A member of the RNA family "SAM/SAH riboswitch aptamer" from Tabrizicola oligotrophica, 49 nucleotides long. Gene Ontology terms of the family: regulation of gene expression and S-adenosylmethionine metabolic process. The match comes from Rfam's covariance-model search (62 bits). NCBI's taxonomy places the organism under Bacteria, Pseudomonadati, Pseudomonadota, Rhodobacterales, Tabrizicola.
RNA sequence: AGACUGCCACAACGGCUUCCUGGCGUGGCAGGUUACUCAUAUCGGAGCA
Numbered sequence: 001a002g003a004c005u006g007c008c009a010c011a012a013c014g015g016c017u018u019c020c021u022g023g024c025g026u027g028g029c030a031g032g033u034u035a036c037u038c039a040u041a042u043c044g045g046a047g048c049a
Base pairs, nucleotide, nucleotide: 004031005030006029007028008027009026010025013022014021015048016047017046019045020044